[Rfam]
RNA sequence: CGGGUAGUAUCCGUUUUCAGGGAACUGCACCGCAAAACCAGCAAACCAUUUUGAUUACGAUAAUUUAGUCUGCCUUGAUCCGAAGGACUGGGACAGAGGA
Numbered sequence: 001c002g003g004g005u006a007g008u009a010u011c012c013g014u015u016u017u018c019a020g021g022g023a024a025c026u027g028c029a030c031c032g033c034a035a036a037a038c039c040a041g042c043a044a045a046c047c048a049u050u051u052u053g054a055u056u057a058c059g060a061u062a063a064u065u066u067a068g069u070c071u072g073c074c075u076u077g078a079u080c081c082g083a084a085g086g087a088c089u090g091g092g093a094c095a096g097a098g099g100a
Stems, first nucleotide, its partner, number of pairs: 001032003004028005010023002070096003073092003077088001079087003
Dot-bracket structure: ((((((((.((..........))))))).))).....................................((((((.(.(((...)))).))).)))....

This 100-nucleotide RNA from Bacillus sp. SJS belongs to the Rfam family "pan motif". The base pairs follow the family's consensus structure, which is taken from published work. The organism belongs to Bacillus, within Bacteria. It is annotated as a cis-regulatory element.